[Rfam]
RNA sequence: GUCCUCAUCAACGCUGCGUUUCUAUGCUACAAACAGAUAUAUUUGUUCACUCAAAUAUAUCAGAUCCUUGCGAUCAUCAUUUUUGCAUAUGAGAAAUUCGGAGUACUCUUCAAAUCACCUCGUUCCUUUGCUUGCAGAGAUGAACAGGUCUGCCCGUGAGGGUUUGGCGUGAUCCACGUCUGCAAUUGGCAUCAGAAAAGCAGGGCAUAGUCUCCGUACUAUUGUUCCUAUGGGAGAGCCAUUGUGAAGAUUGUGUGUGCAAAGACAUAACACUUAAGUGCAAUACGCGGCGUGCUGGGCUUGUUGUCAUUUCGGUGAUGAUGAGCUGGGUACAAUUCGAUUCCGAUUACUCUGUUGAGGAC
Numbered sequence: 001g002u003c004c005u006c007a008u009c010a011a012c013g014c015u016g017c018g019u020u021u022c023u024a025u026g027c028u029a030c031a032a033a034c035a036g037a038u039a040u041a042u043u044u045g046u047u048c049a050c051u052c053a054a055a056u057a058u059a060u061c062a063g064a065u066c067c068u069u070g071c072g073a074u075c076a077u078c079a080u081u082u083u084u085g086c087a088u089a090u091g092a093g094a095a096a097u098u099c100g101g102a103g104u105a106c107u108c109u110u111c112a113a114a115u116c117a118c119c120u121c122g123u124u125c126c127u128u129u130g131c132u133u134g135c136a137g138a139g140a141u142g143a144a145c146a147g148g149u150c151u152g153c154c155c156g157u158g159a160g161g162g163u164u165u166g167g168c169g170u171g172a173u174c175c176a177c178g179u180c181u182g183c184a185a186u187u188g189g190c191a192u193c194a195g196a197a198a199a200g201c202a203g204g205g206c207a208u209a210g211u212c213u214c215c216g217u218a219c220u221a222u223u224g225u226u227c228c229u230a231u232g233g234g235a236g237a238g239c240c241a242u243u244g245u246g247a248a249g250a251u252u253g254u255g256u257g258u259g260c261a262a263a264g265a266c267a268u269a270a271c272a273c274u275u276a277a278g279u280g281c282a283a284u285a286c287g288c289g290g291c292g293u294g295c296u297g298g299g300c301u302u303g304u305u306g307u308c309a310u311u312u313c314g315g316u317g318a319u320g321a322u323g324a325g326c327u328g329g330g331u332a333c334a335a336u337u338c339g340a341u342u343c344c345g346a347u348u349a350c351u352c353u354g355u356u357g358a359g360g361a362c
Stems, first nucleotide, its partner, number of pairs: 001362004009354002013291007023089004036075003099345005109248004152163004166180005185243001187241004203229003292333005298327012
The record is a 362-nucleotide RNA from Rutstroemia sp. NJR-2017a BVV2, which matches "Nuclear RNase P" in Rfam. By type it is a ribozyme. From the family's description: Ribonuclease P (RNase P) is a ubiquitous endoribonuclease, found in archaea, bacteria and eukarya as well as chloroplasts and mitochondria. Its best characterised activity is the generation of mature 5'-ends of tRNAs by cleaving the 5'-leader elements of precursor-tRNAs. Cellular RNase Ps are ribonucleoproteins. RNA from bacterial RNase Ps retains its catalytic activity in the absence of the protein subunit, i.e. it is a ribozyme. Isolated eukaryotic and archaeal RNase P RNA has not been shown to retain its catalytic function, but is still essential for the catalytic activity of the holoenzyme. Although the archaeal and eukaryotic holoenzyme s have a much greater protein content than the bacterial ones, the RNA cores from all the three lineages are homologous -- helices corresponding to P1, P2, P3, P4, and P10/11 are common to all cellular RNase P RNAs. Yet, there is considerable sequence variation, particularly among the eukaryotic RNAs. Taxonomically the source falls in Rutstroemia (Eukaryota, Fungi, Ascomycota, saccharomyceta).